[Rfam]
RNA sequence: AGCUUAUCGAUGAUGGUGAUUAAAAAAAAAUGCCGGAACUAUGCGUUCAGUAGUGAUUUCACCAUUUCUCUGAGAUACGCU
Numbered sequence: 001a002g003c004u005u006a007u008c009g010a011u012g013a014u015g016g017u018g019a020u021u022a023a024a025a026a027a028a029a030a031u032g033c034c035g036g037a038a039c040u041a042u043g044c045g046u047u048c049a050g051u052a053g054u055g056a057u058u059u060c061a062c063c064a065u066u067u068c069u070c071u072g073a074g075a076u077a078c079g080c081u
Base pairs, nucleotide, nucleotide: 002080003079005077006076007075008074
The record is an 81-nucleotide sequence from Ornithorhynchus anatinus, which matches "Small nucleolar RNA SNORD72" in Rfam. Rfam describes the family as follows. snoRNA HBII-240 belongs to the CD family of snoRNAs. A reference for the family is Huttenhofer et al. (2001), "RNomics: an experimental approach that identifies 201 candidates for novel, small, non-messenger RNAs in mouse", EMBO J. It scores 58 bits against the family's covariance model. Rfam classes the family as a C/D-box small nucleolar RNA.